Notes
The family of this 100-nucleotide RNA from Flavobacterium faecale is "Flavo-1 RNA".

[Rfam]
RNA sequence: AUAUAUCCCACCACAGUUCGCGUGAGGGAUUGUAGCGACAUCCUUUUUGGGCCCGAUUUUUUUCGGGGCCAAAAAGAUAUAGCGAAAAGCCCGGCCCGUA
Numbered sequence: 001a002u003a004u005a006u007c008c009c010a011c012c013a014c015a016g017u018u019c020g021c022g023u024g025a026g027g028g029a030u031u032g033u034a035g036c037g038a039c040a041u042c043c044u045u046u047u048u049g050g051g052c053c054c055g056a057u058u059u060u061u062u063u064c065g066g067g068g069c070c071a072a073a074a075a076g077a078u079a080u081a082g083c084g085a086a087a088a089g090c091c092c093g094g095c096c097c098g099u100a
Stems, first nucleotide, its partner, number of pairs: 026092003030088002035083002040078003046073005052068003

The source organism's lineage runs through Bacteria, Pseudomonadati, Flavobacteriia, Flavobacteriaceae and Flavobacterium. By type it is a small RNA. The family's consensus secondary structure is taken from published work.